[Rfam]
Nucleotides: 555
Base pairs, nucleotide, nucleotide: 001518002517003516009515011384013382014381018377019376020375275371276370277369278368279366280365282363283362287359288358289357290356293337294336297333298332299331300330301329302328303327304326308319309318310317345352346351389430390429391428392427393426394425399423403419404418405417406416441514442513443512444509445508446507448490449489450488453485454484455483456482457481458480459479460478462477463476464475494501495500520547521546522545529540530539531538532537
Number, partner (000 for none) and nucleotide at each position: 001518c002517c003516g004000u005000u006000a007000a008000a009515a010000a011384g012000c013382u014381c015000g016000u017000a018377g019376u020375c021000g022000a023000a024000c025000u026000u027000c028000g029000a030000c031000u032000c033000g034000g035000a036000c037000g038000a039000g040000c041000c042000g043000g044000u045000c046000c047000g048000c049000g050000u051000c052000u053000u054000u055000u056000g057000u058000a059000c060000g061000u062000g063000u064000g065000u066000a067000c068000u069000g070000g071000u072000c073000a074000c075000u076000c077000g078000u079000c080000c081000g082000g083000g084000u085000u086000u087000a088000c089000c090000u091000c092000u093000u094000g095000g096000u097000g098000g099000g100000c101000g102000c103000c104000g105000a106000u107000g108000u109000c110000g111000c112000u113000u114000c115000a116000g117000u118000g119000c120000g121000u122000c123000u124000u125000g126000u127000c128000g129000g130000u131000u132000u133000g134000c135000u136000c137000c138000g139000c140000u141000c142000a143000g144000a145000c146000g147000u148000u149000u150000a151000c152000u153000u154000u155000g156000a157000a158000a159000a160000a161000a162000u163000c164000a165000g166000a167000g168000u169000g170000u171000u172000c173000a174000a175000a176000g177000c178000a179000g180000g181000c182000c183000g184000a185000u186000u187000u188000a189000g190000u191000g192000c193000c194000c195000g196000a197000a198000u199000a200000c201000a202000u203000u204000a205000g206000c207000a208000u209000g210000g211000a212000a213000u214000a215000a216000u217000a218000g219000a220000a221000u222000a223000g224000g225000a226000c227000a228000g229000c230000g231000u232000c233000u234000c235000u236000g237000u238000u239000u240000u241000g242000u243000u244000g245000g246000u247000u248000g249000c250000c251000u252000u253000g254000g255000a256000g257000a258000u259000g260000c261000c262000g263000u264000a265000a266000u267000g268000a269000u270000g271000a272000a273000u274000a275371g276370g277369g278368g279366c280365a281000g282363u283362u284000g285000g286000g287359g288358g289357c290356a291000u292000u293337c294336g295000u296000a297333u298332u299331c300330c301329g302328u303327u304326g305000c306000u307000a308319g309318a310317g311000g312000u313000g314000a315000a316000a317310u318309u319308c320000u321000u322000g323000g324000a325000u326304u327303g328302a329301c330300g331299g332298a333297a334000g335000a336294c337293g338000g339000a340000c341000u342000a343000c344000u345352g346351c347000g348000a349000a350000a351346g352345c353000a354000u355000c356290u357289g358288c359287c360000a361000a362283g363282g364000a365280u366279g367000c368278u369277c370276u371275c372000a373000u374000u375020g376019a377018u378000c379000a380000a381014g382013a383000a384011c385000g386000a387000a388000g389430g390429u391428c392427g393426g394425g395000g396000g397000a398000u399423c400000g401000a402000a403419a404418a405417c406416g407000a408000u409000u410000a411000g412000a413000u414000a415000c416406c417405g418404u419403u420000g421000u422000a423399g424000u425394c426393u427392c428391g429390a430389c431000a432000g433000u434000a435000a436000a437000c438000g439000a440000u441514g442513c443512c444509g445508a446507c447000u448490g449489g450488g451000g452000a453485u454484c455483a456482g457481u458480g459479c460478a461000g462477g463476u464475u465000u466000u467000a468000u469000u470000g471000a472000u473000a474000u475464g476463a477462c478460u479459g480458c481457a482456u483455u484454g485453g486000c487000a488450c489449c490448c491000a492000a493000a494501g495500a496000g497000a498000a499000a500495u501494c502000u503000u504000u505000a506000a507446g508445u509444c510000u511000a512443g513442g514441u515009u516003c517002g518001g519000g520547g521546g522545g523000g524000a525000g526000u527000a528000c529540g530539a531538u532537c533000g534000c535000a536000a537532g538531g539530u540529u541000g542000a543000a544000a545522c546521u547520u548000a549000a550000a551000g552000g553000a554000a555000u
The record is a 555-nucleotide part of an RNA from Mixia osmundae, which matches "Eukaryotic small subunit ribosomal RNA" in Rfam. Its family is annotated with structural constituent of ribosome and ribosome in the Gene Ontology. Its Rfam clan is "SSU clan". The family's consensus secondary structure is taken from published work. The source organism's lineage runs through Eukaryota, Dikarya, Basidiomycota, Pucciniomycotina and Mixia osmundae. A search with the family's covariance model found it, with a score of 1722 bits.